[Rfam]
RNA sequence: AGCUUUGCACAGUGGCAGUAUUGCAGCCAAUGAGGUUUAUCCAAAGUGCGAUAAUUGCUAAUUCAAAACUUUUCCCAAUACCUCGCCAUGACGACUUGAAAUAUAGUUGGCAUUGGCAAUUUUUGAGUCUCUACGGAGA
Numbered sequence: 001a002g003c004u005u006u007g008c009a010c011a012g013u014g015g016c017a018g019u020a021u022u023g024c025a026g027c028c029a030a031u032g033a034g035g036u037u038u039a040u041c042c043a044a045a046g047u048g049c050g051a052u053a054a055u056u057g058c059u060a061a062u063u064c065a066a067a068a069c070u071u072u073u074c075c076c077a078a079u080a081c082c083u084c085g086c087c088a089u090g091a092c093g094a095c096u097u098g099a100a101a102u103a104u105a106g107u108u109g110g111c112a113u114u115g116g117c118a119a120u121u122u123u124u125g126a127g128u129c130u131c132u133a134c135g136g137a138g139a
Stems, first nucleotide, its partner, number of pairs: 020052005026047002034042002085117003088113003092109005128139004